[Rfam]
RNA sequence: UGGUUUCCUGCUUCAACAGUGCUUAAAUGGAACCUG
Numbered sequence: 001u002g003g004u005u006u007c008c009u010g011c012u013u014c015a016a017c018a019g020u021g022c023u024u025a026a027a028u029g030g031a032a033c034c035u036g
Stems, first nucleotide, its partner, number of pairs: 001036003005032004010028001012027002015024002017021001